Rfam assigns this 86-nucleotide sequence from Acanthaster planci to the family "mir-981 microRNA precursor family".
It scores 70 bits against the family's covariance model.

RNA sequence: GUGCAUAGUCUGCGGGUUUCGUUCUCCACGAACAGUUAGCGAUCACCCACAUUGUUCGUUGUCGACGAAACCUGAAAAUUGUGCAU
Numbered sequence: 001g002u003g004c005a006u007a008g009u010c011u012g013c014g015g016g017u018u019u020c021g022u023u024c025u026c027c028a029c030g031a032a033c034a035g036u037u038a039g040c041g042a043u044c045a046c047c048c049a050c051a052u053u054g055u056u057c058g059u060u061g062u063c064g065a066c067g068a069a070a071c072c073u074g075a076a077a078a079u080u081g082u083g084c085a086u
Stems, first nucleotide, its partner, number of pairs: 001086006013074009030057005

The family has 17 seed sequences and 180 matches in Rfam 15.1.
The base pairs follow the family's consensus structure, which was predicted with RNAalifold.